[Rfam]
RNA sequence: UUAUAUUUUUAUUACUAAAAAAAAAAGGGAAAAAACAGCAAAUAAAAAAACUUCUUCUUACUAAUUGCUGGAAACUCCUGUUUAAUAGGACAAUCAGCAGGAGCCUGCUGUAUAUGUUUAUACAGUAGGGUUCUUCAGAGACUACACGUAAGAUAUCCUAGAAUCAUUAAAUAAAUAGGAUAAAGAUAUAGUCCGCUCUUAAUAGAAAUAUUAAG
Numbered sequence: 001u002u003a004u005a006u007u008u009u010u011a012u013u014a015c016u017a018a019a020a021a022a023a024a025a026a027g028g029g030a031a032a033a034a035a036c037a038g039c040a041a042a043u044a045a046a047a048a049a050a051c052u053u054c055u056u057c058u059u060a061c062u063a064a065u066u067g068c069u070g071g072a073a074a075c076u077c078c079u080g081u082u083u084a085a086u087a088g089g090a091c092a093a094u095c096a097g098c099a100g101g102a103g104c105c106u107g108c109u110g111u112a113u114a115u116g117u118u119u120a121u122a123c124a125g126u127a128g129g130g131u132u133c134u135u136c137a138g139a140g141a142c143u144a145c146a147c148g149u150a151a152g153a154u155a156u157c158c159u160a161g162a163a164u165c166a167u168u169a170a171a172u173a174a175a176u177a178g179g180a181u182a183a184a185g186a187u188a189u190a191g192u193c194c195g196c197u198c199u200u201a202a203u204a205g206a207a208a209u210a211u212u213a214a215g
Base pairs, nucleotide, nucleotide: 001025002024004022035043056153057152058151059150061148066099067098068097069096070095071094076090077089078088079087080086100134101133104129105128106127110123111122112121113120114119138194140193141192142191143190144189156180157179158178159177160176200213201212202211203210204209
The record is a 215-nucleotide RNA sequence from Sclerotinia sclerotiorum, which matches "Group I catalytic intron" in Rfam. NCBI's taxonomy places the organism under Eukaryota, Dikarya, leotiomyceta, Sclerotinia, Sclerotinia sclerotiorum. Rfam describes the family as follows. Group I catalytic introns are large self-splicing ribozymes. They catalyse their own excision from mRNA, tRNA and rRNA precursors in a wide range of organisms. The core secondary structure consists of 9 paired regions (P1-P9). These fold to essentially two domains - the P4-P6 domain (formed from the stacking of P5, P4, P6 and P6a helices) and the P3-P9 domain (formed from the P8, P3, P7 and P9 helices).